[Rfam]
RNA: Small nucleolar RNA snoR145
RNA sequence: UGGUGAAGGUCCCAGCAGAGGGGUGAAGAACUCUGGAAAUUGAGGCCUCUCUAACAAUUUAAUGCAAAACCUUCGUAAAUUCACUUAUUCGGCCGAAUCGUAGGAUGCCCCAAAUUAUUCUUUGUUUUGGUGCUUCUGGAACCCUCGGCUAAAUACAA
Number, nucleotide and partner (000 for none) at each position: 001u000002g000003g076004u075005g074006a073007a072008g071009g070010u000011c020012c000013c018014a000015g000016c000017a000018g013019a000020g011021g000022g000023g000024u000025g051026a050027a000028g000029a000030a000031c044032u043033c042034u000035g040036g000037a000038a000039a000040u035041u000042g033043a032044g031045g000046c000047c000048u000049c000050u026051c025052u000053a000054a000055c000056a000057a000058u000059u000060u000061a000062a000063u000064g000065c000066a000067a000068a000069a000070c009071c008072u007073u006074c005075g004076u003077a000078a000079a000080u000081u000082c000083a000084c000085u000086u000087a000088u000089u000090c000091g000092g149093c148094c147095g146096a145097a000098u000099c000100g000101u000102a000103g000104g136105a135106u000107g133108c132109c000110c130111c129112a128113a127114a126115u000116u000117a000118u000119u000120c000121u000122u000123u000124g000125u000126u114127u113128u112129g111130g110131u000132g108133c107134u000135u105136c104137u000138g000139g000140a000141a000142c000143c000144c000145u096146c095147g094148g093149c092150u000151a000152a000153a000154u000155a000156c000157a000158a000